Rfam assigns this 78-nucleotide RNA from Schistosoma bovis to the family "mir-3492 microRNA precursor family".
Gene Ontology terms of the family: RISC complex and miRNA-mediated post-transcriptional gene silencing.
The match comes from Rfam's covariance-model search (80 bits).
The base pairs follow the family's consensus structure, which was predicted with RNAalifold.
RNA sequence: AGCCUUCUGUAUCCAUGCUGAGAUUUCGUCACACACCAGACCACGAGGGUUGAUGAGACUCCUAUGAUAAGUGAAGCG
Numbered sequence: 001a002g003c004c005u006u007c008u009g010u011a012u013c014c015a016u017g018c019u020g021a022g023a024u025u026u027c028g029u030c031a032c033a034c035a036c037c038a039g040a041c042c043a044c045g046a047g048g049g050u051u052g053a054u055g056a057g058a059c060u061c062c063u064a065u066g067a068u069a070a071g072u073g074a075a076g077c078g
Stems, first nucleotide, its partner, number of pairs: 002077002005074002008071001010069004017062001020061003024058007